Annotation:
A member of the RNA family "Glycine riboswitch aptamer" from Rhodospirillum rubrum, 112 nucleotides long. From the family's description: This family represents the bacterial glycine riboswitch. NCBI's taxonomy places the organism under Bacteria, Pseudomonadota, Rhodospirillales, Rhodospirillaceae, Rhodospirillum rubrum.

RNA sequence: CGAACCGUUACGGGAGAGAUCGGUCGCCCGUGCCAUCAGGCGCGGGGCAGAGCCGGCGCCGAAGGAGCAACCGCCCCCGGAAACUCUCAGGCAAAUGGACCGUAACGGCAUG
Number, nucleotide and partner (000 for none) at each position: 001c000002g000003a000004a000005c000006c107007g106008u105009u104010a103011c102012g101013g100014g000015a000016g000017a000018g000019a000020u056021c055022g054023g053024u000025c000026g000027c000028c000029c000030g000031u000032g000033c000034c000035a000036u000037c000038a000039g000040g000041c000042g000043c000044g000045g000046g000047g000048c000049a000050g000051a000052g000053c023054c022055g021056g020057c000058g092059c091060c090061g088062a087063a000064g000065g086066a085067g084068c000069a000070a000071c079072c000073g000074c000075c000076c000077c000078c000079g071080g000081a000082a000083a000084c067085u066086c065087u062088c061089a000090g060091g059092c058093a000094a000095a000096u000097g000098g000099a000100c013101c012102g011103u010104a009105a008106c007107g006108g000109c000110a000111u000112g000